[Rfam]
RNA sequence: GGAUGUGAGGGUGACCUGGCUGCGGUAUCUGUCACCCCACUGAUCACCAGCGUUGGUUCGGCUGAUCUGACAGGAUAGGCAGGUGUCCCUUUCCUCCCCCAUGGCUUCAAGUGUGUCCCUCCUGAAGCUGUGUGCUGGGUGGAAGAGGACAACCUUCCCCAAUAGAGGUGUACCAGUCAAGGGUAUACAGUAGCUGCACUCCCCUGAUAGAACCUCCAAACAAGCUUAGAGUUCAUCUGUAGGAGAACAUAGGGUGGUCAAACUUCCAAGAAUGCAGGCACAUCUCAAUGAGGCACUGCAUGGGGCAGUCAAAAUUA
Dot-bracket structure: (((.(((.(((.((...((....((((((((((.((.((..((((.((...........))..))))))...))...)))))))))).)).))..))).)))...)))........(((((((.(.((.....))).))(.(....(((......))).).)..)))).)......................(.(...((.(((((.......((((..(((.(...........).))).))))....))))).))...).)..........................((...(((((.....))))).....)).
Shown here is a 317-nucleotide sequence from Ceyx cyanopectus, a member of the family "7SK RNA". Its Rfam clan is "7SK clan". Rfam classes the family as a non-coding RNA gene. 7SK was discovered as an abundant small nuclear RNA in the mid-70s but a possible function has only recently been suggested.